Shown here is a 73-nucleotide sequence from Culex quinquefasciatus, a member of the family "mir-375 microRNA precursor family". Its family is annotated with miRNA-mediated post-transcriptional gene silencing and RISC complex in the Gene Ontology. It is one of the family's seed sequences. On this family, see Chen et al., Genes Dev 2005: "The developmental miRNA profiles of zebrafish as determined by small RNA cloning".
RNA sequence: AGUUACUCAAGCCGGACGUAACCGAAACUUGGCUCUGCUGUGGAAGAGUUUGUUCGUUUGGCUCGAGUUAUGC
Numbered sequence: 001a002g003u004u005a006c007u008c009a010a011g012c013c014g015g016a017c018g019u020a021a022c023c024g025a026a027a028c029u030u031g032g033c034u035c036u037g038c039u040g041u042g043g044a045a046g047a048g049u050u051u052g053u054u055c056g057u058u059u060g061g062c063u064c065g066a067g068u069u070a071u072g073c
Stems, first nucleotide, its partner, number of pairs: 002071002005068004010063004017056002021053002024050001028048002